[Rfam]
RNA sequence: GAUUUAUACAGAAGCGGCGAGAGAAUAGGCUCCCUGACCCGCUGGCAACCUUCAUCAUGUGAAAGGUGCCAAUUCCUGCCCGCCCGGUCAGUUGCCGGCGGGAGAUAUAAGCU
Numbered sequence: 001g002a003u004u005u006a007u008a009c010a011g012a013a014g015c016g017g018c019g020a021g022a023g024a025a026u027a028g029g030c031u032c033c034c035u036g037a038c039c040c041g042c043u044g045g046c047a048a049c050c051u052u053c054a055u056c057a058u059g060u061g062a063a064a065g066g067u068g069c070c071a072a073u074u075c076c077u078g079c080c081c082g083c084c085c086g087g088u089c090a091g092u093u094g095c096c097g098g099c100g101g102g103a104g105a106u107a108u109a110a111g112c113u
Stems, first nucleotide, its partner, number of pairs: 001113001003111006013043005021032003026078004044070004049066002051063004074105001079102006